This 236-nucleotide sequence from Scytonema hofmannii belongs to the Rfam family "HNH endonuclease-associated RNA and ORF (HEARO) RNA".
RNA sequence: GUAAGCAACCCACGGCUUUAAGCCGUGGGCUUCGACCAGACUCGUUCUAGUCGAAGCCUAGCUUACCAGACUAUCAGCCUUAAAUAAGCUGGGUUUACAUUAAGCGUUAAAGUUCUCACCUUGGAAUACGAAGCUAGUUCCAAGCUCUGAAACCGAACAAUUAAACAGACGUAAAGGUUUAAAGUCAGUGUUGUUUGGAGAGUACCGGAUGUAAACAAAGUCAAAGCUAACAUUAC
Numbered sequence: 001g002u003a004a005g006c007a008a009c010c011c012a013c014g015g016c017u018u019u020a021a022g023c024c025g026u027g028g029g030c031u032u033c034g035a036c037c038a039g040a041c042u043c044g045u046u047c048u049a050g051u052c053g054a055a056g057c058c059u060a061g062c063u064u065a066c067c068a069g070a071c072u073a074u075c076a077g078c079c080u081u082a083a084a085u086a087a088g089c090u091g092g093g094u095u096u097a098c099a100u101u102a103a104g105c106g107u108u109a110a111a112g113u114u115c116u117c118a119c120c121u122u123g124g125a126a127u128a129c130g131a132a133g134c135u136a137g138u139u140c141c142a143a144g145c146u147c148u149g150a151a152a153c154c155g156a157a158c159a160a161u162u163a164a165a166c167a168g169a170c171g172u173a174a175a176g177g178u179u180u181a182a183a184g185u186c187a188g189u190g191u192u193g194u195u196u197g198g199a200g201a202g203u204a205c206c207g208g209a210u211g212u213a214a215a216c217a218a219a220g221u222c223a224a225a226g227c228u229a230a231c232a233u234u235a236c
Base pairs, nucleotide, nucleotide: 001066002065003064004063005062006061008059010029011028012026013025015023016022030056031055032054033053034052035051036050069222070221071220072219074092075091076090077089078088093216094215095214096213097212098211099210100209101208116150117149120144121143122142123141124140125139126138127137132228133227134226135225153198154197155196156195157194158193159192160191161190165189166188168186169185170184172182174180
It scores 121 bits against the family's covariance model.